[Rfam]
RNA sequence: AGAUCUUCAGUACCUACUACCACUGUUUGUAGAAGCUCUUCUAAAUCUACAAAUUCUGUGGUAGUAGGUACUGAAGAUC
Numbered sequence: 001a002g003a004u005c006u007u008c009a010g011u012a013c014c015u016a017c018u019a020c021c022a023c024u025g026u027u028u029g030u031a032g033a034a035g036c037u038c039u040u041c042u043a044a045a046u047c048u049a050c051a052a053a054u055u056c057u058g059u060g061g062u063a064g065u066a067g068g069u070a071c072u073g074a075a076g077a078u079c
Base pairs, nucleotide, nucleotide: 002079003078004077005076006075007074008073009072010071011070012069013068017064018063019062020061021060022059023058025054026053027052028051029050030049031048032047033046